Shown here is a 595-nucleotide sequence from Lentzea albidocapillata, a member of the family "Saccharopolyspora sRNA 389". Rfam classes the family as an antisense RNA. The family has 2 seed sequences and 93 matches in Rfam 15.1. Gene Ontology term of the family: regulation of secondary metabolite biosynthetic process.

RNA sequence: ACCAGAGCCGUGGUGGUGCGGUGCAGGAAAUCCUGCCGGGCGGCGCGGAUCUUGCGGUGCGCGCGGGCGACCUUGGCCUUGGCCUUGCGGCGGUUGCCGCUACCGCGUUCGCAGCGGGCCAUCCGCCGUUGGUAGCGGGCCAGGUUGCGGGCCUUGCGGACCAGAUGCCGCGGGUUCGCGAUCCGUUCACCGUCACUGGUCACCACCAGAUCUGUGAGGCCGAGGUCGACGCCGAUCGCGUGCCCGGCGGGCUCAGCCGGGGCGGGCUCGGCGGUGUCCACGGCGAACGCCACGUACCAGCGGCCGUCCGGCUCGCGGGACACCACCACCAUCGUCGGAUCCAGCGCGGCCAGGUCCACCUCGCCGAAGGACCAGACCAACCGCAGCGGUGUGCUGGUCUUGGCCAGUGUCAGCACACCCUCGCGCAUCCGGAACGCCGAGCGGGUGUAGUGCGCGCUCUGCCGCCCGGUACGGGACUUGAACCUCGGGAAACGGGCCCGCCCGGCGAAGAAGUUGCCGAACGCGGUGUGCUGAUGGCGCAGCGUCUGCUGCAACGGCACACAGGACACCUCCGACAGAAACGCGAGUUCCUCGG
Numbered sequence: 001a002c003c004a005g006a007g008c009c010g011u012g013g014u015g016g017u018g019c020g021g022u023g024c025a026g027g028a029a030a031u032c033c034u035g036c037c038g039g040g041c042g043g044c045g046c047g048g049a050u051c052u053u054g055c056g057g058u059g060c061g062c063g064c065g066g067g068c069g070a071c072c073u074u075g076g077c078c079u080u081g082g083c084c085u086u087g088c089g090g091c092g093g094u095u096g097c098c099g100c101u102a103c104c105g106c107g108u109u110c111g112c113a114g115c116g117g118g119c120c121a122u123c124c125g126c127c128g129u130u131g132g133u134a135g136c137g138g139g140c141c142a143g144g145u146u147g148c149g150g151g152c153c154u155u156g157c158g159g160a161c162c163a164g165a166u167g168c169c170g171c172g173g174g175u176u177c178g179c180g181a182u183c184c185g186u187u188c189a190c191c192g193u194c195a196c197u198g199g200u201c202a203c204c205a206c207c208a209g210a211u212c213u214g215u216g217a218g219g220c221c222g223a224g225g226u227c228g229a230c231g232c233c234g235a236u237c238g239c240g241u242g243c244c245c246g247g248c249g250g251g252c253u254c255a256g257c258c259g260g261g262g263c264g265g266g267c268u269c270g271g272c273g274g275u276g277u278c279c280a281c282g283g284c285g286a287a288c289g290c291c292a293c294g295u296a297c298c299a300g301c302g303g304c305c306g307u308c309c310g311g312c313u314c315g316c317g318g319g320a321c322a323c324c325a326c327c328a329c330c331a332u333c334g335u336c337g338g339a340u341c342c343a344g345c346g347c348g349g350c351c352a353g354g355u356c357c358a359c360c361u362c363g364c365c366g367a368a369g370g371a372c373c374a375g376a377c378c379a380a381c382c383g384c385a386g387c388g389g390u391g392u393g394c395u396g397g398u399c400u401u402g403g404c405c406a407g408u409g410u411c412a413g414c415a416c417a418c419c420c421u422c423g424c425g426c427a428u429c430c431g432g433a434a435c436g437c438c439g440a441g442c443g444g445g446u447g448u449a450g451u452g453c454g455c456g457c458u459c460u461g462c463c464g465c466c467c468g469g470u471a472c473g474g475g476a477c478u479u480g481a482a483c484c485u486c487g488g489g490a491a492a493c494g495g496g497c498c499c500g501c502c503c504g505g506c507g508a509a510g511a512a513g514u515u516g517c518c519g520a521a522c523g524c525g526g527u528g529u530g531c532u533g534a535u536g537g538c539g540c541a542g543c544g545u546c547u548g549c550u551g552c553a554a555c556g557g558c559a560c561a562c563a564g565g566a567c568a569c570c571u572c573c574g575a576c577a578g579a580a581a582c583g584c585g586a587g588u589u590c591c592u593c594g595g
Stems, first nucleotide, its partner, number of pairs: 002016003017580001019578001021576002023033001025031001040068002045062003049058003069146005075140001077138002082133003087129007095121002097118001098116002100111001102109001149213003154208001155205002159201004164196001166195001170193004178188001180186001220574001223571004230273006236266002239264002243261006274560005281551005287545004295536002298533005303527005310351003314346002318342003323337001325335002361469003365464001366462001368460002372456001373454001376451002380446003386442002388438004392433001394431001396429003399425001403424002407419001409418002473517001475515005486504004582594002585591001